[Rfam]
RNA sequence: AAUACGCCCGCGUUAGCGAUUGAAACGGCAUCCUUUUUGUUUUUCACAAAAAGAUAUAGAGGAAAGCGCGACCCUUG
Dot-bracket structure: ...............(((.((....(...(((...(((((.....)))))..)))...)....)).)))........
Numbered sequence: 001a002a003u004a005c006g007c008c009c010g011c012g013u014u015a016g017c018g019a020u021u022g023a024a025a026c027g028g029c030a031u032c033c034u035u036u037u038u039g040u041u042u043u044u045c046a047c048a049a050a051a052a053g054a055u056a057u058a059g060a061g062g063a064a065a066g067c068g069c070g071a072c073c074c075u076u077g
Stems, first nucleotide, its partner, number of pairs: 016069003020065002026059001030055003036050005